Rfam assigns this 111-nucleotide RNA from Bacillus sp. B-jedd to the family "BsrF".

[Rfam]
RNA sequence: GCGAUGAGCUGAAUUGUGUAAGCCGGGGAACAUUCCAUCUGGAACAUGCGAAUGUGGCGCAUGGUUCUCCGCCUCAAUACGCAAAAAGGCGCCUGUCAAUUGACAGGCGCC
Numbered sequence: 001g002c003g004a005u006g007a008g009c010u011g012a013a014u015u016g017u018g019u020a021a022g023c024c025g026g027g028g029a030a031c032a033u034u035c036c037a038u039c040u041g042g043a044a045c046a047u048g049c050g051a052a053u054g055u056g057g058c059g060c061a062u063g064g065u066u067c068u069c070c071g072c073c074u075c076a077a078u079a080c081g082c083a084a085a086a087a088g089g090c091g092c093c094u095g096u097c098a099a100u101u102g103a104c105a106g107g108c109g110c111c
Stems, first nucleotide, its partner, number of pairs: 014077003018073001024071008034043002045063002048060003088111009
Pairs were carried over by alignment from the consensus structure, which was predicted with WAR. On this family, see Saito et al., Gene 2008: "Novel small RNA-encoding genes in the intergenic regions of Bacillus subtilis". The organism belongs to Bacillus, within Bacteria. By type it is a small RNA. The match comes from Rfam's covariance-model search (102 bits).